RNA sequence: GAAAGACGCGCAUUUAUUAUCAUCAUCCCUGAGUCAGAGAUGAAAAUUUGGCCACAGAAAUGUGGCCGUUUU
Numbered sequence: 001g002a003a004a005g006a007c008g009c010g011c012a013u014u015u016a017u018u019a020u021c022a023u024c025a026u027c028c029c030u031g032a033g034u035c036a037g038a039g040a041u042g043a044a045a046a047u048u049u050g051g052c053c054a055c056a057g058a059a060a061u062g063u064g065g066c067c068g069u070u071u072u
Base pairs, nucleotide, nucleotide: 024042025041026040027039029037030036031035050067051066052065053064054063055062056061
RNA: MicA sRNA
Organism: Klebsiella indica